[Rfam]
Notes: Shown here is a 74-nucleotide RNA from Chryseobacterium sp. P1-3, a member of the family "tRNA". The match comes from Rfam's covariance-model search (51 bits). The base pairs follow the family's consensus structure, which is taken from published work. Rfam classes the family as a transfer RNA. Lineage of the source: Bacteria > Flavobacteriia > Flavobacteriales > Weeksellaceae > Chryseobacterium.
RNA sequence: GGUUCCAUAGCUCAACCGGAUAGAGCAUGGGUUUUCUAAACCCAGGGUUAGGGGCUCAAGUCCUCUCGGAAUUA
Numbered sequence: 001g002g003u004u005c006c007a008u009a010g011c012u013c014a015a016c017c018g019g020a021u022a023g024a025g026c027a028u029g030g031g032u033u034u035u036c037u038a039a040a041c042c043c044a045g046g047g048u049u050a051g052g053g054g055c056u057c058a059a060g061u062c063c064u065c066u067c068g069g070a071a072u073u074a
Stems, first nucleotide, its partner, number of pairs: 001073006010026004028044005050066005